[Rfam]
RNA sequence: CGCGAGUUUCUUCGGGGCGGAGCUCGACCGCCAACACAAGAGGUAGUCGCCUUCAUCGACGCCAACGCUUCGGCGCUCGUCGAAGGUCGCAGGCUCGGGGUCGAGCCCAUCUGCGAGGUCUUGCAGGUGGCUCCG
Numbered sequence: 001c002g003c004g005a006g007u008u009u010c011u012u013c014g015g016g017g018c019g020g021a022g023c024u025c026g027a028c029c030g031c032c033a034a035c036a037c038a039a040g041a042g043g044u045a046g047u048c049g050c051c052u053u054c055a056u057c058g059a060c061g062c063c064a065a066c067g068c069u070u071c072g073g074c075g076c077u078c079g080u081c082g083a084a085g086g087u088c089g090c091a092g093g094c095u096c097g098g099g100g101u102c103g104a105g106c107c108c109a110u111c112u113g114c115g116a117g118g119u120c121u122u123g124c125a126g127g128u129g130g131c132u133c134c135g
Base pairs, nucleotide, nucleotide: 016032017031018030019029020028096135097134098133099132100131107130108129110127111126112125113124114123115122116121
Record summary:
This 135-nucleotide sequence from Cellulomonas sp. JH27-2 belongs to the Rfam family "ALIL pseudoknot". The base pairs follow the family's consensus structure, which is taken from published work. A search with the family's covariance model found it, with a score of 55 bits. On this family, see Mazauric et al., J Biol Chem 2008: "Apical loop-internal loop RNA pseudoknots: a new type of stimulator of -1 translational frameshifting in bacteria". Lineage of the source: Bacteria > Actinomycetota > Micrococcales > Cellulomonadaceae > Cellulomonas. Rfam classes the family as a cis-regulatory element.